[Rfam]
RNA sequence: UUGCCCAUUCUAGGCUGUCUGUGCCUGGGGUGGCCAACACAGGGGGGUACAGAGAAGUCCUCUCUAAAACAUGGUGCAGGGUCCCGAUCUCUGCCCCAGAUCCUGUCGGGAGGUACACGC
Numbered sequence: 001u002u003g004c005c006c007a008u009u010c011u012a013g014g015c016u017g018u019c020u021g022u023g024c025c026u027g028g029g030g031u032g033g034c035c036a037a038c039a040c041a042g043g044g045g046g047g048u049a050c051a052g053a054g055a056a057g058u059c060c061u062c063u064c065u066a067a068a069a070c071a072u073g074g075u076g077c078a079g080g081g082u083c084c085c086g087a088u089c090u091c092u093g094c095c096c097c098a099g100a101u102c103c104u105g106u107c108g109g110g111a112g113g114u115a116c117a118c119g120c
Stems, first nucleotide, its partner, number of pairs: 002049005008043002014038001016036002019030001060112005072098003076094002079091003